[Rfam]
Shown here is a 97-nucleotide sequence from Mycoplasma todarodis, a member of the family "Purine riboswitch aptamer".
A reference for the family is Mandal et al. (2003), "Riboswitches Control Fundamental Biochemical Pathways in Bacillus subtilis and Other Bacteria", Cell.
It scores 45 bits against the family's covariance model.
Rfam's curators write: Riboswitches are metabolite binding domains within certain messenger RNAs that serve as precision sensors for their corresponding targets.
The organism belongs to Mycoplasma, within Bacteria.
RNA sequence: AGUAUAUAAUACUUUGGUGGAUAUUUAUACUCAUAAUAUGGUUGAGUGUUUCUACAAGGCACCCUAAAUGCCGCUAAUAUCAAUAUCCCGUUUUAAG
Numbered sequence: 001a002g003u004a005u006a007u008a009a010u011a012c013u014u015u016g017g018u019g020g021a022u023a024u025u026u027a028u029a030c031u032c033a034u035a036a037u038a039u040g041g042u043u044g045a046g047u048g049u050u051u052c053u054a055c056a057a058g059g060c061a062c063c064c065u066a067a068a069u070g071c072c073g074c075u076a077a078u079a080u081c082a083a084u085a086u087c088c089c090g091u092u093u094u095a096a097g
Stems, first nucleotide, its partner, number of pairs: 018083001020081006029047005058072004